Notes:
The record is a 49-nucleotide RNA from Polerovirus CBTV1, which matches "Exoribonuclease-resistant RNA (xrRNA) plant-infecting virus (class 3)" in Rfam. The source organism's lineage runs through Viruses, Orthornavirae, Pisuviricota, Polerovirus and Polerovirus CBTV1. The sequence is in the family's curated seed alignment. From the family's description: Exoribonuclease-resistant RNA (xrRNA) plant-infecting virus (class 3) is a ncRNA that was reported in Plant viruses. By type it is a cis-regulatory element. The base pairs follow the family's consensus structure, which is taken from published work.
RNA sequence: AGGUAGCCUUUGGUUUUGUUGCAACAGAAGGAGCCACAAGUCAAAACUA
Numbered sequence: 001a002g003g004u005a006g007c008c009u010u011u012g013g014u015u016u017u018g019u020u021g022c023a024a025c026a027g028a029a030g031g032a033g034c035c036a037c038a039a040g041u042c043a044a045a046a047c048u049a
Base pairs, nucleotide, nucleotide: 002034007031008030010029011026012025014046015045016044017043018042